[Rfam]
RNA sequence: AAAGAAUUUCCUCUGCACAAAUGAAAGCGACGAGGCGUUGUGUAGAGG
Numbered sequence: 001a002a003a004g005a006a007u008u009u010c011c012u013c014u015g016c017a018c019a020a021a022u023g024a025a026a027g028c029g030a031c032g033a034g035g036c037g038u039u040g041u042g043u044a045g046a047g048g
Base pairs, nucleotide, nucleotide: 011047012046013045014044015043017041018040019039
A member of the RNA family "uup RNA" from Listeria kieliensis, 48 nucleotides long. The base pairs follow the family's consensus structure, which is taken from published work. The match comes from Rfam's covariance-model search (43 bits).